[Rfam]
RNA sequence: CAGUCGAGUAGAAGCGGUCAGUGCCAGAAAUGGCAUGGGACAUUGCUCUGGCG
Numbered sequence: 001c002a003g004u005c006g007a008g009u010a011g012a013a014g015c016g017g018u019c020a021g022u023g024c025c026a027g028a029a030a031u032g033g034c035a036u037g038g039g040a041c042a043u044u045g046c047u048c049u050g051g052c053g
Stems, first nucleotide, its partner, number of pairs: 006048005015038001018040002021036006
This 53-nucleotide RNA belongs to the Rfam family "Xanthine riboswitch aptamer (NMT1 RNA)". The sequence is in the family's curated seed alignment. Pairs were carried over by alignment from the consensus structure, which is taken from published work. On this family, see Xu et al., Nucleic Acids Res 2021: "Insights into xanthine riboswitch structure and metal ion-mediated ligand recognition".